Histidine operon leader: a 121-nucleotide sequence from Frischella perrara. From the family's description: At least 6 amino acid operons are known to be regulated by attenuation. In each a leader sequence of 150-200 bp is found upstream of the first gene in the operon. This leader sequence can assume two different secondary structures known as the terminator and the anti-terminator structure. In each case the leader also codes for very short peptide sequence that is rich in the end product amino acid of the operon. The literature on the family includes a 1982 paper in Annu Rev Genet by Kolter and Yanofsky, "Attenuation in amino acid biosynthetic operons".

RNA sequence: CCAUCAUCACCAUCACCCUGAUUAGUCUUCGGGCAUUUGGUGCUGGAAGACAAAGGUCUUCCGGAUAAGUGCGAAAGUAAUCAGAAAGCCCUCGGAAGAUCUCUUCCGGGGGCUUUUUUUA
Numbered sequence: 001c002c003a004u005c006a007u008c009a010c011c012a013u014c015a016c017c018c019u020g021a022u023u024a025g026u027c028u029u030c031g032g033g034c035a036u037u038u039g040g041u042g043c044u045g046g047a048a049g050a051c052a053a054a055g056g057u058c059u060u061c062c063g064g065a066u067a068a069g070u071g072c073g074a075a076a077g078u079a080a081u082c083a084g085a086a087a088g089c090c091c092u093c094g095g096a097a098g099a100u101c102u103c104u105u106c107c108g109g110g111g112g113c114u115u116u117u118u119u120u121a
Stems, first nucleotide, its partner, number of pairs: 008042003012037001017033005043064008083118016